A member of the RNA family "Glycine riboswitch aptamer" from Hydrogenophaga borbori, 97 nucleotides long.
[Rfam]
RNA sequence: GCCGCAUUGUCAGGAGAGCGUUCCCCCGGGGAACCGCCGAAGGCGCAGGGGCCGGAUCAGGCCCCGAACGCUCAGGCAAAAGGACUGGCAAACGCCC
Numbered sequence: 001g002c003c004g005c006a007u008u009g010u011c012a013g014g015a016g017a018g019c020g021u022u023c024c025c026c027c028g029g030g031g032a033a034c035c036g037c038c039g040a041a042g043g044c045g046c047a048g049g050g051g052c053c054g055g056a057u058c059a060g061g062c063c064c065c066g067a068a069c070g071c072u073c074a075g076g077c078a079a080a081a082g083g084a085c086u087g088g089c090a091a092a093c094g095c096c097c
Stems, first nucleotide, its partner, number of pairs: 007091007020034004036077003039073002043071003049065002
The organism belongs to Hydrogenophaga, within Bacteria.
Its family is annotated with glycine biosynthetic process in the Gene Ontology.